[Rfam]
RNA sequence: GGUAGAGGGAAGUUCAUCAGUGGGGCCAUGAGCUGAGUGCCUUGCGUCACUCCACCCCAUGUUGCCUGGGAAGGUCUGGGACUAGAGCCAAAAGUGGCCCUAACAGGAUCCUCCCUGAGUUUCAAAAGAGGUGAGUUUUCAGAGAAUGCAGCUCAUUGCUCCUGAGGGCGGACUGGGUAGGAGAUGCAGUGGACCCUGCCCUUGGGGACGGGCCUGGCUUGGGAAGGGGCCUGGCAGAUGCCUCCUUAGCCUGAGCUUGGAACAGACUCUCACAGCCAGGGAGAUGAGUUCAAUGGCUGCGGUGAGGUACCCUGCCCAGGGGCCUCAUAACCCAAUUCAGAUCACUUUCCCCUAUC
Numbered sequence: 001g002g003u004a005g006a007g008g009g010a011a012g013u014u015c016a017u018c019a020g021u022g023g024g025g026c027c028a029u030g031a032g033c034u035g036a037g038u039g040c041c042u043u044g045c046g047u048c049a050c051u052c053c054a055c056c057c058c059a060u061g062u063u064g065c066c067u068g069g070g071a072a073g074g075u076c077u078g079g080g081a082c083u084a085g086a087g088c089c090a091a092a093a094g095u096g097g098c099c100c101u102a103a104c105a106g107g108a109u110c111c112u113c114c115c116u117g118a119g120u121u122u123c124a125a126a127a128g129a130g131g132u133g134a135g136u137u138u139u140c141a142g143a144g145a146a147u148g149c150a151g152c153u154c155a156u157u158g159c160u161c162c163u164g165a166g167g168g169c170g171g172a173c174u175g176g177g178u179a180g181g182a183g184a185u186g187c188a189g190u191g192g193a194c195c196c197u198g199c200c201c202u203u204g205g206g207g208a209c210g211g212g213c214c215u216g217g218c219u220u221g222g223g224a225a226g227g228g229g230c231c232u233g234g235c236a237g238a239u240g241c242c243u244c245c246u247u248a249g250c251c252u253g254a255g256c257u258u259g260g261a262a263c264a265g266a267c268u269c270u271c272a273c274a275g276c277c278a279g280g281g282a283g284a285u286g287a288g289u290u291c292a293a294u295g296g297c298u299g300c301g302g303u304g305a306g307g308u309a310c311c312c313u314g315c316c317c318a319g320g321g322g323c324c325u326c327a328u329a330a331c332c333c334a335a336u337u338c339a340g341a342u343c344a345c346u347u348u349c350c351c352c353u354a355u356c
Stems, first nucleotide, its partner, number of pairs: 001356004008350003013301001015299002018296001022066002025063001035052005040046001076340005087276002096110002099107002111130003116125001131271001133269005151256005302328007

The family of this 356-nucleotide sequence from Odobenus rosmarus is "Nuclear RNase P".
The organism belongs to Odobenus rosmarus, within Eukaryota.
The family's RNA type in Rfam is ribozyme.
On this family, see Marquez et al., RNA 2005: "Structural implications of novel diversity in eucaryal RNase P RNA".
Ribonuclease P (RNase P) is a ubiquitous endoribonuclease, found in archaea, bacteria and eukarya as well as chloroplasts and mitochondria.
The match comes from Rfam's covariance-model search (178 bits).